A member of the RNA family "nhaA-I RNA" from Novosphingobium chloroacetimidivorans, 53 nucleotides long. Acidobacteria, Alphaproteobacteria, Betaproteobacteria and Gammaproteobacteria, Verrucomicrobia, cand. division NC10. The base pairs follow the family's consensus structure, which is taken from published work. It is annotated as a riboswitch. Lineage of the source: Bacteria > Pseudomonadati > Sphingomonadales > Sphingomonadaceae > Novosphingobium.

RNA sequence: GGGUGUUCGUCGGUUCUGGCGGGCAGGUUUUCUCGCUGGUCGGGCCGCCAGCG
Numbered sequence: 001g002g003g004u005g006u007u008c009g010u011c012g013g014u015u016c017u018g019g020c021g022g023g024c025a026g027g028u029u030u031u032c033u034c035g036c037u038g039g040u041c042g043g044g045c046c047g048c049c050a051g052c053g
Stems, first nucleotide, its partner, number of pairs: 005024008034053007